[Rfam]
RNA sequence: CCUUUGGAGUAUCAAGACCACACAAGUAGGAUUAAUCCAAAAGUGGAUACGUUGAAAAAGGAA
Numbered sequence: 001c002c003u004u005u006g007g008a009g010u011a012u013c014a015a016g017a018c019c020a021c022a023c024a025a026g027u028a029g030g031a032u033u034a035a036u037c038c039a040a041a042a043g044u045g046g047a048u049a050c051g052u053u054g055a056a057a058a059a060g061g062a063a
Base pairs, nucleotide, nucleotide: 001061002060003059004058005057009050010049011048012047013046021045022044023043029038030037031036
The family of this 63-nucleotide sequence from Sporanaerobacter acetigenes is "RAGATH-18 RNA".
Rfam classes the family as a small RNA.
A search with the family's covariance model found it, with a score of 60 bits.